The family of this 102-nucleotide sequence from Thiohalomonas denitrificans is "c-di-GMP-I riboswitch aptamer". Lineage of the source: Bacteria > Pseudomonadota > Gammaproteobacteria > Thiohalomonadales > Thiohalomonas. Rfam describes the family as follows. GEMM was predicted in a large-scale screen for bacterial structured RNA regulatory elements. Genes associated with GEMM are involved in a diverse array of functions, including chemotaxis regulation, signal transduction, secretion and chitin.
RNA sequence: GCCUGUUAAAAGCAACCUUGUCGAAAGGCAAGGGCGCAAAGCCACCGGCCUAAGGGAUGCGUCCUUCCGGGACUAACUUCCUAAGGCAGCGGAGCUGCCAGG
Numbered sequence: 001g002c003c004u005g006u007u008a009a010a011a012g013c014a015a016c017c018u019u020g021u022c023g024a025a026a027g028g029c030a031a032g033g034g035c036g037c038a039a040a041g042c043c044a045c046c047g048g049c050c051u052a053a054g055g056g057a058u059g060c061g062u063c064c065u066u067c068c069g070g071g072a073c074u075a076a077c078u079u080c081c082u083a084a085g086g087c088a089g090c091g092g093a094g095c096u097g098c099c100a101g102g
Base pairs, nucleotide, nucleotide: 012037013036017032018031019030020029021028022027040096041095042094045092046091047090048087049086050085055081056080057079